The family of this 45-nucleotide RNA sequence from Pocillopora damicornis is "Histone 3' UTR stem-loop". Pairs were carried over by alignment from the consensus structure, which is taken from published work. NCBI's taxonomy places the organism under Eukaryota, Opisthokonta, Eumetazoa, Pocilloporidae, Pocillopora.
[Rfam]
RNA sequence: CAAACGGCUCCUUUAGGAGCCACCAAUUUUACAAAAUUCUUUAUA
Number, nucleotide and partner (000 for none) at each position: 001c000002a000003a000004a000005c000006g021007g020008c019009u018010c017011c016012u000013u000014u000015a000016g011017g010018a009019g008020c007021c006022a000023c000024c000025a000026a000027u000028u000029u000030u000031a000032c000033a000034a000035a000036a000037u000038u000039c000040u000041u000042u000043a000044u000045a000